[Rfam]
RNA: Small nucleolar RNA SNORA26
RNA sequence: UUGCCCUCUUAAGUCUUUCAGUGUCUUAAGUGGCCAACACAGAGGGGUAUAAAAGUUCUCUCUCAUACCCAGAGGUGAGGUUGAAACUCUUCUUUGGAUCAUGCUGAGAGGAACACAU
Number, nucleotide and partner (000 for none) at each position: 001u000002u049003g048004c047005c046006c045007u044008c000009u042010u041011a000012a000013g000014u036015c000016u000017u033018u000019c030020a000021g000022u000023g000024u000025c000026u000027u000028a000029a000030g019031u000032g000033g017034c000035c000036a014037a000038c000039a000040c000041a010042g009043a000044g007045g006046g005047g004048u003049a002050u000051a000052a000053a000054a000055g000056u112057u000058c110059u109060c108061u107062c106063u000064c000065a000066u000067a000068c000069c097070c096071a095072g094073a093074g092075g091076u000077g089078a088079g087080g000081u086082u000083g000084a000085a000086a081087c079088u078089c077090u000091u075092c074093u073094u072095u071096g070097g069098a000099u000100c000101a000102u000103g000104c000105u000106g062107a061108g060109a059110g058111g000112a056113a000114c000115a000116c000117a000118u000